RNA sequence: GAUUUACUUAAAGCGCCAGGACUAUUCCACCUGAAUCGGAACUUAGGGGUUUAGUUGACGAGGAGGAGGUUUAUCGAUGUUUUCGGCGGAUGCCUCCCGGUUACGGUCAGUACCGAAAGUGGACCAACAAAACAAAGGGGUGACUCUUUGAACAAAAGGUGCACAUGACCAUGG
Numbered sequence: 001g002a003u004u005u006a007c008u009u010a011a012a013g014c015g016c017c018a019g020g021a022c023u024a025u026u027c028c029a030c031c032u033g034a035a036u037c038g039g040a041a042c043u044u045a046g047g048g049g050u051u052u053a054g055u056u057g058a059c060g061a062g063g064a065g066g067a068g069g070u071u072u073a074u075c076g077a078u079g080u081u082u083u084c085g086g087c088g089g090a091u092g093c094c095u096c097c098c099g100g101u102u103a104c105g106g107u108c109a110g111u112a113c114c115g116a117a118a119g120u121g122g123a124c125c126a127a128c129a130a131a132a133c134a135a136a137g138g139g140g141u142g143a144c145u146c147u148u149u150g151a152a153c154a155a156a157a158g159g160u161g162c163a164c165a166u167g168a169c170c171a172u173g174g
Base pairs, nucleotide, nucleotide: 020056021055022054023053024052027049028047065097066096067095068094069093074086075085076084077083098115099114100113101112119164120163121162123160124159125158133150134149135148136147137146138145139144
The record is a 174-nucleotide RNA sequence from Ammoniphilus sp. CFH 90114, which matches "glmS glucosamine-6-phosphate activated ribozyme aptamer" in Rfam.
Pairs were carried over by alignment from the consensus structure, which is taken from published work.
On this family, see Winkler et al., Nature 2004: "Control of gene expression by a natural metabolite-responsive ribozyme".
Its family is annotated with regulation of gene expression and catalytic activity in the Gene Ontology.
Lineage of the source: Bacteria > Bacillati > Bacillota > Bacilli > Ammoniphilus.